[Rfam]
RNA: mir-15 microRNA precursor family
Organism: Leptobrachium leishanense
RNA sequence: CCCUAUAAAUCUGUAGCAGCACAUCAUGAUUUGCAUAAUACCUUUGAGAUACUAAUCAUUAUUUGCUGCUUCAGGAUUUUAGGG
Numbered sequence: 001c002c003c004u005a006u007a008a009a010u011c012u013g014u015a016g017c018a019g020c021a022c023a024u025c026a027u028g029a030u031u032u033g034c035a036u037a038a039u040a041c042c043u044u045u046g047a048g049a050u051a052c053u054a055a056u057c058a059u060u061a062u063u064u065g066c067u068g069c070u071u072c073a074g075g076a077u078u079u080u081a082g083g084g
Stems, first nucleotide, its partner, number of pairs: 001084005013072001015070007023062002026059006033052001035050002